RNA sequence: GAUCGCCUUCGGGGUCGGGUGAAAUUCCCAACCGGCGGUGAUGAGUGGACGUAAAACUCUAAGCCCGUGACCCGUUUUAUAAGAGUUAAAUUUAUAAAACGGUGGAUUUGGUGAGAAACCAAAGCCGACAGUAAAGUCUGGAUGGGAGAAGGCAAAU
Dot-bracket structure: ..(.((((((......(((.......))).[[((((((........................[[))))...(((((((.................)))))))....(((((.......)))))]])).(((....]]))).......)))))).)..
FMN riboswitch aptamer (RFN element): a 157-nucleotide RNA from Niallia circulans. The organism belongs to Niallia, within Bacteria.